[Rfam]
RNA sequence: GCGGAGGGCCGGAUGGUCGCGUCGGGGGCAACCCCGUCGAGGAAAGUCCGGACUCCACAGGGCAACGGUGCCGGGUAACGCCCGGCGGGGGCAACCCCAGGGACAGCGCCACAGAGAACAGACCGCCCCGGUCGGCCCGCAUGGGCUGCUUCUUCGGAAGGGCCGGGGUAAGGGUGAAACGGUGCGGUAAGAGCGCACCGCGGGACGGGCAACCGGACCGGCAUGGCAAGCCCCACCGGGAGCAAUGCCGAAUAGGGACUUCACGCGGGAUGCCUUGGUAUCACCGCAGGGCCGUCCUGGCCCGGAAGUCCGGGUUGGCAGCUAGAGGCCACGGGCAACCGUGGUCCGAGAUGAAUGAUCAUCGAACCGGGGCAACCCGGGGAACAAAAUCCGGCUUACAGGCCCUCCGCGCAU
Numbered sequence: 001g002c003g004g005a006g007g008g009c010c011g012g013a014u015g016g017u018c019g020c021g022u023c024g025g026g027g028g029c030a031a032c033c034c035c036g037u038c039g040a041g042g043a044a045a046g047u048c049c050g051g052a053c054u055c056c057a058c059a060g061g062g063c064a065a066c067g068g069u070g071c072c073g074g075g076u077a078a079c080g081c082c083c084g085g086c087g088g089g090g091g092c093a094a095c096c097c098c099a100g101g102g103a104c105a106g107c108g109c110c111a112c113a114g115a116g117a118a119c120a121g122a123c124c125g126c127c128c129c130g131g132u133c134g135g136c137c138c139g140c141a142u143g144g145g146c147u148g149c150u151u152c153u154u155c156g157g158a159a160g161g162g163c164c165g166g167g168g169u170a171a172g173g174g175u176g177a178a179a180c181g182g183u184g185c186g187g188u189a190a191g192a193g194c195g196c197a198c199c200g201c202g203g204g205a206c207g208g209g210c211a212a213c214c215g216g217a218c219c220g221g222c223a224u225g226g227c228a229a230g231c232c233c234c235a236c237c238g239g240g241a242g243c244a245a246u247g248c249c250g251a252a253u254a255g256g257g258a259c260u261u262c263a264c265g266c267g268g269g270a271u272g273c274c275u276u277g278g279u280a281u282c283a284c285c286g287c288a289g290g291g292c293c294g295u296c297c298u299g300g301c302c303c304g305g306a307a308g309u310c311c312g313g314g315u316u317g318g319c320a321g322c323u324a325g326a327g328g329c330c331a332c333g334g335g336c337a338a339c340c341g342u343g344g345u346c347c348g349a350g351a352u353g354a355a356u357g358a359u360c361a362u363c364g365a366a367c368c369g370g371g372g373c374a375a376c377c378c379g380g381g382g383a384a385c386a387a388a389a390u391c392c393g394g395c396u397u398a399c400a401g402g403c404c405c406u407c408c409g410c411g412c413a414u
Stems, first nucleotide, its partner, number of pairs: 001410010011399001012363007020039002023036005044397003048394005053242004061298002064295001066238005071085005086100001087098004101233002106231002108227003123173002125169009181199006200222001201220003206215003246320004256311006289303005327346008
Bacterial RNase P class A: a 414-nucleotide RNA from Pseudooceanicola albus.
It scores 301 bits against the family's covariance model.
Ribonuclease P (RNase P) is a ubiquitous endoribonuclease, found in archaea, bacteria and eukarya as well as chloroplasts and mitochondria. Its best characterised activity is the generation of mature 5'-ends of tRNAs by cleaving the 5'-leader elements of precursor-tRNAs.
By type it is a ribozyme.